[Rfam]
RNA sequence: AAAAAAGCAGGGGCUUGUCAUCUUUCAGGCAAGUCUCUCAUAAACUUCAGGGAAACUCAUCCCAUUGUUAUUGGGUGAACCGUUGUAGGUUGUCUGUGAUGAAAGGUUCAGUAAAUAAUGGCACAUUG
Numbered sequence: 001a002a003a004a005a006a007g008c009a010g011g012g013g014c015u016u017g018u019c020a021u022c023u024u025u026c027a028g029g030c031a032a033g034u035c036u037c038u039c040a041u042a043a044a045c046u047u048c049a050g051g052g053a054a055a056c057u058c059a060u061c062c063c064a065u066u067g068u069u070a071u072u073g074g075g076u077g078a079a080c081c082g083u084u085g086u087a088g089g090u091u092g093u094c095u096g097u098g099a100u101g102a103a104a105g106g107u108u109c110a111g112u113a114a115a116u117a118a119u120g121g122c123a124c125a126u127u128g
Stems, first nucleotide, its partner, number of pairs: 005047003011036002014033004062121008076110006